[Rfam]
RNA sequence: ACUAUGCACGGGAGCUGCUGGACACUGCACAAGAUUAGACUAUGCAAACUCUUGUGCGUGUGACAGCGGCUAUCGUUGGCUAGUCCAUAUUCAGC
Numbered sequence: 001a002c003u004a005u006g007c008a009c010g011g012g013a014g015c016u017g018c019u020g021g022a023c024a025c026u027g028c029a030c031a032a033g034a035u036u037a038g039a040c041u042a043u044g045c046a047a048a049c050u051c052u053u054g055u056g057c058g059u060g061u062g063a064c065a066g067c068g069g070c071u072a073u074c075g076u077u078g079g080c081u082a083g084u085c086c087a088u089a090u091u092c093a094g095c
Stems, first nucleotide, its partner, number of pairs: 006080002008076003013071008023060002026058006033051002